[Rfam]
RNA sequence: GUGAAGUGAUGAUGACGUUUAUCCAUUCUCUGAGUGUUGCUGCUCUGCCCUUCCUGCCACGUUCAGGGUCCUGUUCUAGGGUCUUGCGUGUUGUGUGGCUUCCAGGCAUCUUGGUGUCUUCCAGUGUUCUACUGGGGGCUGCUGGGAUGUUUGGCAGGCUGCCGGCAGGGCCUGGGCAGUGCAAGCAGGGUCAGAGCCCCUUCUUAUAGGGCUCUGUCUCUACCAAGAAGAGUGAAACGGUCUGAUCAC
Numbered sequence: 001g002u003g004a005a006g007u008g009a010u011g012a013u014g015a016c017g018u019u020u021a022u023c024c025a026u027u028c029u030c031u032g033a034g035u036g037u038u039g040c041u042g043c044u045c046u047g048c049c050c051u052u053c054c055u056g057c058c059a060c061g062u063u064c065a066g067g068g069u070c071c072u073g074u075u076c077u078a079g080g081g082u083c084u085u086g087c088g089u090g091u092u093g094u095g096u097g098g099c100u101u102c103c104a105g106g107c108a109u110c111u112u113g114g115u116g117u118c119u120u121c122c123a124g125u126g127u128u129c130u131a132c133u134g135g136g137g138g139c140u141g142c143u144g145g146g147a148u149g150u151u152u153g154g155c156a157g158g159c160u161g162c163c164g165g166c167a168g169g170g171c172c173u174g175g176g177c178a179g180u181g182c183a184a185g186c187a188g189g190g191u192c193a194g195a196g197c198c199c200c201u202u203c204u205u206a207u208a209g210g211g212c213u214c215u216g217u218c219u220c221u222a223c224c225a226a227g228a229a230g231a232g233u234g235a236a237a238c239g240g241u242c243u244g245a246u247c248a249c
Base pairs, nucleotide, nucleotide: 010248011247012246013245017241018240019239024234025233026232027231028230029229030227031226034223035222039186040185041184043181045179046178047177048176049175050174053170054169055168056166057165059091060090061089062088064086065085067083068082069081070080071079072078095162096161097160098159099158100157101156108148109147110145113142116139117138118137120136121135122134123133124132125131126130188220189219190218192216193215194214195213197211198210
Small nucleolar RNA SNORD17: a 249-nucleotide RNA from Pogona vitticeps. Lineage of the source: Eukaryota > Eumetazoa > Bilateria > Squamata > Pogona. A reference for the family is Huttenhofer et al. (2001), "RNomics: an experimental approach that identifies 201 candidates for novel, small, non-messenger RNAs in mouse", EMBO J. Rfam classes the family as a C/D-box small nucleolar RNA. Its family is annotated with nucleolus and RNA processing in the Gene Ontology. About the family: The snoRNA HBI-43 belongs to the C/D family of snoRNAs, guiding 2'O-ribose methylation at position U3797 of the 28S rRNA. Pseudouridylation in position U3797 is predicted to be guided by the H/ACA snoRNA ACA48.